[Rfam]
RNA: SAH (S-adenosyl-L-homocysteine) riboswitch aptamer
Organism: Rhodoferax sp. TH121
RNA sequence: ACUUCCGAGGAGCGUUGCAGCUUGCCAAGUGCCACUGAGGCACCGCGAGUGAGGCUCGGAACCCACGAUGCGCCUUGCAUCGUGUCUUCACAACGGCGCUCACCCACU
Dot-bracket structure: ..((((((............(((((...................)))))......))))))...............................................
Numbered sequence: 001a002c003u004u005c006c007g008a009g010g011a012g013c014g015u016u017g018c019a020g021c022u023u024g025c026c027a028a029g030u031g032c033c034a035c036u037g038a039g040g041c042a043c044c045g046c047g048a049g050u051g052a053g054g055c056u057c058g059g060a061a062c063c064c065a066c067g068a069u070g071c072g073c074c075u076u077g078c079a080u081c082g083u084g085u086c087u088u089c090a091c092a093a094c095g096g097c098g099c100u101c102a103c104c105c106a107c108u
Stems, first nucleotide, its partner, number of pairs: 003061006021049005